[Rfam]
The record is a 46-nucleotide RNA from Phycisphaerae bacterium RAS1, which matches "Acido-Lenti-1 RNA" in Rfam.
The family's RNA type in Rfam is small RNA.
The family's consensus secondary structure is taken from published work.
The match comes from Rfam's covariance-model search (39 bits).
RNA sequence: CCCACGGCGUGCGCCGUGGGCUUUAUUCGCUCGCCGCUACGCGGCU
Numbered sequence: 001c002c003c004a005c006g007g008c009g010u011g012c013g014c015c016g017u018g019g020g021c022u023u024u025a026u027u028c029g030c031u032c033g034c035c036g037c038u039a040c041g042c043g044g045c046u
Base pairs, nucleotide, nucleotide: 001020002019003018004017005016006015007014008013033045034044035043036042037041